Rfam assigns this 121-nucleotide sequence from Ornithinimicrobium avium to the family "Group II catalytic intron D1-D4-2". Rfam describes the family as follows. Group II introns are found in rRNA, tRNA and mRNA of organelles in fungi, plants and protists, and also in mRNA in bacteria. The family has 144 seed sequences and 1,231 matches in Rfam 15.1. Rfam links the family to the GO term Group II intron splicing. A reference for the family is Bonen and Vogel (2001), "The ins and outs of group II introns", Trends Genet.

RNA sequence: GAGGGAUUGUUGGCCCCUUGGAAUCGCCCUUCGGGGGGAGGUUUCAAACCGCCACAGGCUGCGUUGGUUGAAGACCGUCGUGGUGAGCGUUUGUGGAAAAGGCACCGGGAAGGUGUCAGGU
Numbered sequence: 001g002a003g004g005g006a007u008u009g010u011u012g013g014c015c016c017c018u019u020g021g022a023a024u025c026g027c028c029c030u031u032c033g034g035g036g037g038g039a040g041g042u043u044u045c046a047a048a049c050c051g052c053c054a055c056a057g058g059c060u061g062c063g064u065u066g067g068u069u070g071a072a073g074a075c076c077g078u079c080g081u082g083g084u085g086a087g088c089g090u091u092u093g094u095g096g097a098a099a100a101g102g103c104a105c106c107g108g109g110a111a112g113g114u115g116u117c118a119g120g121u
Base pairs, nucleotide, nucleotide: 001019002018003017004016005015020045021044022043023042024041025040027038028037029036030035050120052096053095054094055093056092057090058084059083061081062080063079065077066076067075068074101117102116103115104114105113106112
Dot-bracket structure: (((((.........)))))((((((.((((....)))).))))))....(.((((((((.(((.((((.....)))).))).)).....).)))))....((((((.....))))))..).